[Rfam]
RNA sequence: AUUAAGUGUGACAUGCCCGUUUGGGUUAUUACUCUGAUGCAUGAUUAUUUAUUAAUUAAUUGCUUUUGGGUAAUGGGGUAUUACAGUCAA
Numbered sequence: 001a002u003u004a005a006g007u008g009u010g011a012c013a014u015g016c017c018c019g020u021u022u023g024g025g026u027u028a029u030u031a032c033u034c035u036g037a038u039g040c041a042u043g044a045u046u047a048u049u050u051a052u053u054a055a056u057u058a059a060u061u062g063c064u065u066u067u068g069g070g071u072a073a074u075g076g077g078g079u080a081u082u083a084c085a086g087u088c089a090a
Base pairs, nucleotide, nucleotide: 002090003089005087007085008084009083010082011081013079014078016077017076018075019074020073021072
RNA: MIR2617 microRNA precursor family
Organism: Medicago truncatula